The family of this 136-nucleotide RNA from Nicator chloris is "Small nucleolar RNA SNORA29". The family's consensus secondary structure was predicted with PFOLD. On this family, see Huttenhofer et al., EMBO J 2001: "RNomics: an experimental approach that identifies 201 candidates for novel, small, non-messenger RNAs in mouse". It scores 123 bits against the family's covariance model. Rfam 15.1 lists 960 matches to the family in 621 species. Clan: SNORA20 clan.
RNA sequence: AUUCCCAUUUAACUACCACUUUUUCAACUUCUAGAUUAAGUGGCUAUGCUUGUGGGAUAGAGAAAAACUUGCCAUGGUCUGAAGGAAAAGGUUGAUUGUAUCUUUUUCCUAUAUGAAAAUGGCAGAACAACCUUUA
Numbered sequence: 001a002u003u004c005c006c007a008u009u010u011a012a013c014u015a016c017c018a019c020u021u022u023u024u025c026a027a028c029u030u031c032u033a034g035a036u037u038a039a040g041u042g043g044c045u046a047u048g049c050u051u052g053u054g055g056g057a058u059a060g061a062g063a064a065a066a067a068c069u070u071g072c073c074a075u076g077g078u079c080u081g082a083a084g085g086a087a088a089a090g091g092u093u094g095a096u097u098g099u100a101u102c103u104u105u106u107u108c109c110u111a112u113a114u115g116a117a118a119a120u121g122g123c124a125g126a127a128c129a130a131c132c133u134u135u136a
Stems, first nucleotide, its partner, number of pairs: 004056004016043004071123004089110003